[Rfam]
RNA sequence: GUGAAAUAAAUCACAUACAAACAUACACCCCUUUGUUUGAGCGUGAACAUUUCUCCCAUCCCCUUUGUGUAAUGAAAAACGCCUGCCGGACGUGGCAGGCGUUUUUC
Number, nucleotide and partner (000 for none) at each position: 001g000002u000003g053004a052005a051006a050007u049008a000009a000010a000011u046012c045013a044014c043015a000016u000017a000018c039019a038020a037021a036022c035023a034024u000025a000026c000027a000028c000029c000030c000031c000032u000033u000034u023035g022036u021037u020038u019039g018040a000041g000042c000043g014044u013045g012046a011047a000048c000049a007050u006051u005052u004053c003054u000055c000056c000057c000058a000059u000060c000061c000062c000063c000064u000065u000066u000067g000068u000069g073070u000071a000072a000073u069074g000075a000076a000077a104078a103079a102080c101081g100082c099083c098084u097085g096086c095087c094088g000089g000090a000091c000092g000093u000094g087095g086096c085097a084098g083099g082100c081101g080102u079103u078104u077105u000106u000107c000
Annotation:
RNA Staph. aureus E (RoxS): a 107-nucleotide RNA sequence from Planococcus halotolerans. On this family, see Geissmann et al., Nucleic Acids Res 2009: "A search for small noncoding RNAs in Staphylococcus aureus reveals a conserved sequence motif for regulation". Its family is annotated with regulation of translational initiation in the Gene Ontology. It was shown to be regulated by the presence of nitric oxide (NO). In Bacillus subtilis it controls expression of genes with functions related to oxidative stress and oxidation-reduction reactions and it was renamed RoxS (for related to oxidative stress). The base pairs follow the family's consensus structure, which is taken from published work.